[Rfam]
RNA sequence: AUAAUUUAAAAAACAAGCCGUCGUAUAAUCUCGGGGAUAUGGCCCGAAAGUUUCUACCUAGCUGCCGUAAAUAGCUGGACUACGAGGCGUAUAGAUACAGGC
Numbered sequence: 001a002u003a004a005u006u007u008a009a010a011a012a013a014c015a016a017g018c019c020g021u022c023g024u025a026u027a028a029u030c031u032c033g034g035g036g037a038u039a040u041g042g043c044c045c046g047a048a049a050g051u052u053u054c055u056a057c058c059u060a061g062c063u064g065c066c067g068u069a070a071a072u073a074g075c076u077g078g079a080c081u082a083c084g085a086g087g088c089g090u091a092u093a094g095a096u097a098c099a100g101g102c
Base pairs, nucleotide, nucleotide: 019087021085022084023083024082025081029049031047032046033045034044035043058078059077060076061075062074063073064072
Shown here is a 102-nucleotide sequence from Ectobacillus ponti, a member of the family "Purine riboswitch aptamer". Rfam describes the family as follows. Riboswitches are metabolite binding domains within certain messenger RNAs that serve as precision sensors for their corresponding targets. Allosteric rearrangement of mRNA structure is mediated by ligand binding, and this results in modulation of gene expression. A class of riboswitches that selectively recognises guanine and becomes saturated at concentrations as low as 5 nM. In Bacillus subtilis, this mRNA motif is located on at least five separate transcriptional units that together encode 17 genes that are mostly involved in purine transport and purine nucleotide biosynthesis. The match comes from Rfam's covariance-model search (88 bits). Its Rfam clan is "Purine riboswitches". Rfam links the family to the GO term purine nucleobase biosynthetic process.